[Rfam]
RNA sequence: GCAUGCUCCCGCAUCGUGGUCUCUGUCCGAAGGCACGACCCUGGCGUACUUCCCCAACGCCAGGGUCGUGCCUUCGGACAGAGACCACGAUGCGGGGAUAUUUGCGU
Number, nucleotide and partner (000 for none) at each position: 001g000002c000003a000004u000005g000006c000007u097008c096009c095010c094011g093012c092013a091014u000015c000016g000017u000018g086019g085020u000021c083022u082023c081024u080025g079026u078027c077028c076029g075030a074031a073032g072033g071034c070035a069036c068037g067038a066039c065040c064041c063042u062043g061044g060045c059046g058047u057048a000049c000050u000051u000052c000053c000054c000055c000056a000057a047058c046059g045060c044061c043062a042063g041064g040065g039066u038067c037068g036069u035070g034071c033072c032073u031074u030075c029076g028077g027078a026079c025080a024081g023082a022083g021084a000085c019086c018087a000088c000089g000090a000091u013092g012093c011094g010095g009096g008097g007098a000099u000100a000101u000102u000103u000104g000105c000106g000107u000
A member of the RNA family "mraW RNA" from Mycobacterium leprae, 107 nucleotides long. The sequence is in the family's curated seed alignment. By type it is a cis-regulatory element.